[Rfam]
RNA sequence: UCCACCGUGAGGUGGAAUCUGAAGGAAGCCGGAGGCAAAAUCCCGAACUGACGGACAGAAACUAUAUAGAAGGCUGAAUUGGGAUGGACGAGUUUGCAUAACAAAACGAAGUCCAAUACUGCACGAAUCCCAUACAGUAAAUAUAGCAGUUACAUGGGAGGAAGGUUAUAGCU
Numbered sequence: 001u002c003c004a005c006c007g008u009g010a011g012g013u014g015g016a017a018u019c020u021g022a023a024g025g026a027a028g029c030c031g032g033a034g035g036c037a038a039a040a041u042c043c044c045g046a047a048c049u050g051a052c053g054g055a056c057a058g059a060a061a062c063u064a065u066a067u068a069g070a071a072g073g074c075u076g077a078a079u080u081g082g083g084a085u086g087g088a089c090g091a092g093u094u095u096g097c098a099u100a101a102c103a104a105a106a107c108g109a110a111g112u113c114c115a116a117u118a119c120u121g122c123a124c125g126a127a128u129c130c131c132a133u134a135c136a137g138u139a140a141a142u143a144u145a146g147c148a149g150u151u152a153c154a155u156g157g158g159a160g161g162a163a164g165g166u167u168a169u170a171g172c173u
Base pairs, nucleotide, nucleotide: 001016002015003014004013005012006011028173030171032169035166036165041159042158043157044156045155046151047150048149049148050147062146063145064144065143066142067141073138074137075136080132081131082130083129084128086114087113088112089111092107093106094105095104

The family of this 173-nucleotide RNA from Ureibacillus massiliensis is "Group II catalytic intron D1-D4-3".
It scores 153 bits against the family's covariance model.
Lineage of the source: Bacteria > Bacillati > Caryophanaceae > Ureibacillus > Ureibacillus massiliensis.
Gene Ontology term of the family: Group II intron splicing.